[Rfam]
RNA sequence: AAACUUUUAGGCCUUCUCUUCCCGGUUCUUCCCAGAGUCAGGAAGAGCUGGGUUGAGAGGAAAAAUAAAAAAAACU
Numbered sequence: 001a002a003a004c005u006u007u008u009a010g011g012c013c014u015u016c017u018c019u020u021c022c023c024g025g026u027u028c029u030u031c032c033c034a035g036a037g038u039c040a041g042g043a044a045g046a047g048c049u050g051g052g053u054u055g056a057g058a059g060g061a062a063a064a065a066u067a068a069a070a071a072a073a074a075c076u
Stems, first nucleotide, its partner, number of pairs: 014059005021052005029044004